[Rfam]
RNA sequence: GCGUCCUGACCUCAUCUCAUCUUCCCCCUCACCAGAACUGUGGUAGGGGGCCUGGGGUGGACGCAGAUCAACUAACCUCUCGUGUUAGGAGGGCUGCCAAAGACAUGUGCAUGCCCUUAAAGGCAAGAGAGGACACU
Numbered sequence: 001g002c003g004u005c006c007u008g009a010c011c012u013c014a015u016c017u018c019a020u021c022u023u024c025c026c027c028c029u030c031a032c033c034a035g036a037a038c039u040g041u042g043g044u045a046g047g048g049g050g051c052c053u054g055g056g057g058u059g060g061a062c063g064c065a066g067a068u069c070a071a072c073u074a075a076c077c078u079c080u081c082g083u084g085u086u087a088g089g090a091g092g093g094c095u096g097c098c099a100a101a102g103a104c105a106u107g108u109g110c111a112u113g114c115c116c117u118u119a120a121a122g123g124c125a126a127g128a129g130a131g132g133a134c135a136c137u
Base pairs, nucleotide, nucleotide: 002063003062004061005060006059010056011055024050025049027048028047029046031044032043076132077131078130079129080128081127085122086121089118090117091116092115093114094113096110097109098107099106